[Rfam]
RNA: DUF805b RNA
RNA sequence: ACGGAGCAAGCCGAAAAUCCAUAAUCGAGUAGGCA
Numbered sequence: 001a002c003g004g005a006g007c008a009a010g011c012c013g014a015a016a017a018u019c020c021a022u023a024a025u026c027g028a029g030u031a032g033g034c035a
Base pairs, nucleotide, nucleotide: 003020004019005018010034011033012032
Dot-bracket structure: ..(((....[[[.....)))...........]]].